[Rfam]
RNA sequence: CGCUCUAGUGCGGGAGAGUUCUGUGGCUGCCAGCUACGGACGCCGAAGGAGCAAUACCUCUCCGUCAACCUCUCAGGCACCCGGACCGCGCGAGACUA
Numbered sequence: 001c002g003c004u005c006u007a008g009u010g011c012g013g014g015a016g017a018g019u020u021c022u023g024u025g026g027c028u029g030c031c032a033g034c035u036a037c038g039g040a041c042g043c044c045g046a047a048g049g050a051g052c053a054a055u056a057c058c059u060c061u062c063c064g065u066c067a068a069c070c071u072c073u074c075a076g077g078c079a080c081c082c083g084g085a086c087c088g089c090g091c092g093a094g095a096c097u098a
Stems, first nucleotide, its partner, number of pairs: 006093001008091006020040006042078003045074002049072003056065002

This 98-nucleotide sequence from Mycobacterium tuberculosis belongs to the Rfam family "Glycine riboswitch aptamer". From the family's description: This family represents the bacterial glycine riboswitch. Rfam links the family to the GO term glycine biosynthetic process. The organism belongs to Mycobacterium tuberculosis, within Bacteria.